RNA sequence: GUGAGUUUAGUGGAGUUUAAUGCUUCUCAUCGCCGGCCCUUUCGCGAAAGCUCUACCCAAACUCAUCCCCC
Numbered sequence: 001g002u003g004a005g006u007u008u009a010g011u012g013g014a015g016u017u018u019a020a021u022g023c024u025u026c027u028c029a030u031c032g033c034c035g036g037c038c039c040u041u042u043c044g045c046g047a048a049a050g051c052u053c054u055a056c057c058c059a060a061a062c063u064c065a066u067c068c069c070c071c
Stems, first nucleotide, its partner, number of pairs: 001066008010056009
This 71-nucleotide sequence from Drosophila bipectinata belongs to the Rfam family "mir-1017 microRNA precursor family". The organism belongs to bipectinata species complex, within Eukaryota.